This 95-nucleotide RNA sequence from Protea cynaroides belongs to the Rfam family "Small nucleolar RNA Z266". Pairs were carried over by alignment from the consensus structure, which was predicted with PFOLD.
[Rfam]
RNA sequence: UUAUGGCAGGAAUGAUGAAGAAAUUAGAUGUUUGAAGGGAUGUUUUCCCUCGUGAUCUUAAUUUUGAAGCUUAUUGAUAUUCUGACCUGCCGUAU
Numbered sequence: 001u002u003a004u005g006g007c008a009g010g011a012a013u014g015a016u017g018a019a020g021a022a023a024u025u026a027g028a029u030g031u032u033u034g035a036a037g038g039g040a041u042g043u044u045u046u047c048c049c050u051c052g053u054g055a056u057c058u059u060a061a062u063u064u065u066g067a068a069g070c071u072u073a074u075u076g077a078u079a080u081u082c083u084g085a086c087c088u089g090c091c092g093u094a095u
Base pairs, nucleotide, nucleotide: 002094003093004092005091006090007089008088009087010086
Notes: Its family is annotated with nucleolus and RNA processing in the Gene Ontology.